[Rfam]
RNA sequence: ACGUUCUCAACGGGGUGCCGCCUGCAACCAGCAAGCAGCUGAGAGAGACCCGUCGAACCUGAUUCGGUUAAUACCGACGUAGGGAUUUGAGAGGCCGCUGUGC
Dot-bracket structure: .....(((((((((.(((.((.............)).))......)..)))).....((((..((((......))))..))))...)))))............
RNA: TPP riboswitch aptamer (THI element)